[Rfam]
RNA sequence: UAAUUUAUUAUCGAUGAAUGGAUUCACCCAUGAGAUGACGUGGUUAUUCCAUCUAGGAUGAGGACGUGACAUCCUAUUAAUUUCGUGUGAUGGAUGGUAAUAGGAUGCAUGUCCUCGUCCUAGGUGAAACAAUCAUGUCAUUUCAUGGGUAAAUCCAUUCAUCGAUAGUGUGGUU
Numbered sequence: 001u002a003a004u005u006u007a008u009u010a011u012c013g014a015u016g017a018a019u020g021g022a023u024u025c026a027c028c029c030a031u032g033a034g035a036u037g038a039c040g041u042g043g044u045u046a047u048u049c050c051a052u053c054u055a056g057g058a059u060g061a062g063g064a065c066g067u068g069a070c071a072u073c074c075u076a077u078u079a080a081u082u083u084c085g086u087g088u089g090a091u092g093g094a095u096g097g098u099a100a101u102a103g104g105a106u107g108c109a110u111g112u113c114c115u116c117g118u119c120c121u122a123g124g125u126g127a128a129a130c131a132a133u134c135a136u137g138u139c140a141u142u143u144c145a146u147g148g149g150u151a152a153a154u155c156c157a158u159u160c161a162u163c164g165a166u167a168g169u170g171u172g173g174u175u
Stems, first nucleotide, its partner, number of pairs: 002174001004172001006170002009167007017159003021155004026150003030146004035141005041135005047129002051125002054122002057119002063113003070107010086097001
Description:
This 175-nucleotide RNA from Oryza meridionalis belongs to the Rfam family "MIR807 microRNA precursor family". NCBI's taxonomy places the organism under Eukaryota, Streptophytina, Petrosaviidae, Oryzoideae, Oryza. Its family is annotated with miRNA-mediated post-transcriptional gene silencing and RISC complex in the Gene Ontology.